The record is a 117-nucleotide RNA sequence from Hymenochirus boettgeri, which matches "mir-16 microRNA precursor family" in Rfam.
On this family, see Calin et al., Proc Natl Acad Sci U S A 2002: "Frequent deletions and down-regulation of micro- RNA genes miR15 and miR16 at 13q14 in chronic lymphocytic leukemia".
Rfam links the family to the GO terms miRNA-mediated post-transcriptional gene silencing and RISC complex.
It scores 38 bits against the family's covariance model.
RNA sequence: ACGGGUCUUUAGCAGCAUAGUAACAAACACUUUAUUUAAUACAUCUACGCGUUUCAGCCGUGUAUAGGCGUAGAUGUAUUAAAAAAAGUGUUUGUUACUAUGCUGCUAAAGACCCGU
Numbered sequence: 001a002c003g004g005g006u007c008u009u010u011a012g013c014a015g016c017a018u019a020g021u022a023a024c025a026a027a028c029a030c031u032u033u034a035u036u037u038a039a040u041a042c043a044u045c046u047a048c049g050c051g052u053u054u055c056a057g058c059c060g061u062g063u064a065u066a067g068g069c070g071u072a073g074a075u076g077u078a079u080u081a082a083a084a085a086a087a088g089u090g091u092u093u094g095u096u097a098c099u100a101u102g103c104u105g106c107u108a109a110a111g112a113c114c115c116g117u
Stems, first nucleotide, its partner, number of pairs: 001117003005113003010110001011107008022096012